[Rfam]
RNA: Lysine riboswitch aptamer
Organism: Firmicutes bacterium AF22-6AC
RNA sequence: UAAGAAGAUAGAGGUUGCGUUUUUCAAGAGUAUUUUUUCGGAGGUAACAGGUACCGUUGAGGGAAGAAGAAAGGGGAACACGCCGAAAGAUAAGGUAUCCUGUAUAUUGUUAUCUUGGGCAUACGUUUAAGAAGCGUAUGACUGUCAUCUCGUAAGCAGAUGGGGCGCUAUCAAAUAA
Numbered sequence: 001u002a003a004g005a006a007g008a009u010a011g012a013g014g015u016u017g018c019g020u021u022u023u024u025c026a027a028g029a030g031u032a033u034u035u036u037u038u039c040g041g042a043g044g045u046a047a048c049a050g051g052u053a054c055c056g057u058u059g060a061g062g063g064a065a066g067a068a069g070a071a072a073g074g075g076g077a078a079c080a081c082g083c084c085g086a087a088a089g090a091u092a093a094g095g096u097a098u099c100c101u102g103u104a105u106a107u108u109g110u111u112a113u114c115u116u117g118g119g120c121a122u123a124c125g126u127u128u129a130a131g132a133a134g135c136g137u138a139u140g141a142c143u144g145u146c147a148u149c150u151c152g153u154a155a156g157c158a159g160a161u162g163g164g165g166c167g168c169u170a171u172c173a174a175a176u177a178a
Stems, first nucleotide, its partner, number of pairs: 007172005017083004022078004033068007087116007095108001117143002120140008145163006